A member of the RNA family "IS605-orfB-I RNA", 217 nucleotides long. The base pairs follow the family's consensus structure, which is taken from published work. Rfam's curators put it in the seed alignment.
RNA sequence: ACUAUAUAAAGAUAUAUAACCACCAGAUAGGUUGGUAUCUCCCUUUAUAGUAUUUUAAAUUCGAAACUUGUUGAUAAUUUGUUGUGUAACUUCAUUUAAAUGAAUUGAAACAAAUUUAAUACAAGUGGAUGUAGGAUAACCGUCCGUCCUUUACAUUGGUAUAAAAGUGAUCUAAAAUUCUAUUUAUAAUUUUUUAUAGAUUUUUAGUGACGGUCAU
Numbered sequence: 001a002c003u004a005u006a007u008a009a010a011g012a013u014a015u016a017u018a019a020c021c022a023c024c025a026g027a028u029a030g031g032u033u034g035g036u037a038u039c040u041c042c043c044u045u046u047a048u049a050g051u052a053u054u055u056u057a058a059a060u061u062c063g064a065a066a067c068u069u070g071u072u073g074a075u076a077a078u079u080u081g082u083u084g085u086g087u088a089a090c091u092u093c094a095u096u097u098a099a100a101u102g103a104a105u106u107g108a109a110a111c112a113a114a115u116u117u118a119a120u121a122c123a124a125g126u127g128g129a130u131g132u133a134g135g136a137u138a139a140c141c142g143u144c145c146g147u148c149c150u151u152u153a154c155a156u157u158g159g160u161a162u163a164a165a166a167g168u169g170a171u172c173u174a175a176a177a178u179u180c181u182a183u184u185u186a187u188a189a190u191u192u193u194u195u196a197u198a199g200a201u202u203u204u205u206a207g208u209g210a211c212g213g214u215c216a217u
Stems, first nucleotide, its partner, number of pairs: 001051006008044001010040006017034005022028001066126006072119001077115007088106002091103001133150005139214006145167001152161003172207006179200005